[Rfam]
RNA: mir-19 microRNA precursor family
Organism: Sinocyclocheilus anshuiensis
RNA sequence: UGUCCUGGUUCGUUUUGCUGGUUUGCAGUCAGCGUUCGUAUCGUUGCUGUGCAAAUCCAUGCAAAACUGAUCAUAACA
Numbered sequence: 001u002g003u004c005c006u007g008g009u010u011c012g013u014u015u016u017g018c019u020g021g022u023u024u025g026c027a028g029u030c031a032g033c034g035u036u037c038g039u040a041u042c043g044u045u046g047c048u049g050u051g052c053a054a055a056u057c058c059a060u061g062c063a064a065a066a067c068u069g070a071u072c073a074u075a076a077c078a
Base pairs, nucleotide, nucleotide: 003076006073007072008071009070010069012067013066014065015064016063017062018061020058021057022055023054024053025052026051027050031048032047033046